A member of the RNA family "Small nucleolar RNA SNORA40" from Cricetulus griseus, 129 nucleotides long. Rfam links the family to the GO terms nucleolus and RNA processing. From the family's description: The snoRNA ACA 40 belongs to the H/ACA family of snoRNAs and guides the pseudouridylation of 28S rRNA subunit at position U4565. Pairs were carried over by alignment from the consensus structure, which was predicted with RNAalifold. The family's RNA type in Rfam is H/ACA-box small nucleolar RNA. The organism belongs to Cricetulus, within Eukaryota.
RNA sequence: AACACUUAUGUUCGUGUGUUUGUUGAACGGGUAGAAAAAACCCACAAAAGUCAGGUGCAAAAAUGAAUCCUUUUGCAACCCAGAACUCAUUGUUCAACAUGAGUUUUGAAACCUGAAAGAAAGAAUAUG
Numbered sequence: 001a002a003c004a005c006u007u008a009u010g011u012u013c014g015u016g017u018g019u020u021u022g023u024u025g026a027a028c029g030g031g032u033a034g035a036a037a038a039a040a041c042c043c044a045c046a047a048a049a050g051u052c053a054g055g056u057g058c059a060a061a062a063a064u065g066a067a068u069c070c071u072u073u074u075g076c077a078a079c080c081c082a083g084a085a086c087u088c089a090u091u092g093u094u095c096a097a098c099a100u101g102a103g104u105u106u107u108g109a110a111a112c113c114u115g116a117a118a119g120a121a122a123g124a125a126u127a128u129g
Base pairs, nucleotide, nucleotide: 003057004056005055006054007053011049016043018041019040020039021038023036067126068125070123071120072119073118074117081108082107083106084105085104086103087102088101089100090099